[Rfam]
RNA sequence: GUUUUGAUAAAAAACUGACCUAAGACAGCAGGGGAGCAUGCUCAUAAUAUUCCUGCCGAGGCACAAAACGUGAUUAAAGAAAAUAACGUAUUUGUACUUUCGUGUCUAGGUUUAGGUGCGAUUUUUUUUGUACCUAG
Numbered sequence: 001g002u003u004u005u006g007a008u009a010a011a012a013a014a015c016u017g018a019c020c021u022a023a024g025a026c027a028g029c030a031g032g033g034g035a036g037c038a039u040g041c042u043c044a045u046a047a048u049a050u051u052c053c054u055g056c057c058g059a060g061g062c063a064c065a066a067a068a069c070g071u072g073a074u075u076a077a078a079g080a081a082a083a084u085a086a087c088g089u090a091u092u093u094g095u096a097c098u099u100u101c102g103u104g105u106c107u108a109g110g111u112u113u114a115g116g117u118g119c120g121a122u123u124u125u126u127u128u129u130g131u132a133c134c135u136a137g
Base pairs, nucleotide, nucleotide: 028056029055030054031053032052033051034043035042036041100121101120102119103118104117105116106115107114108113
The record is a 137-nucleotide sequence from Streptococcus pyogenes, which matches "Ribosomal protein L10 leader" in Rfam. The sequence is in the family's curated seed alignment. The family's RNA type in Rfam is cis-regulatory leader. Rfam describes the family as follows. This family is a putative r-protein leader autoregulatory structure found in B. subtilis and other low-GC Gram-positive bacteria. The source organism's lineage runs through Bacteria, Bacillati, Bacilli, Streptococcus pyogenes and Streptococcus pyogenes serotype M6.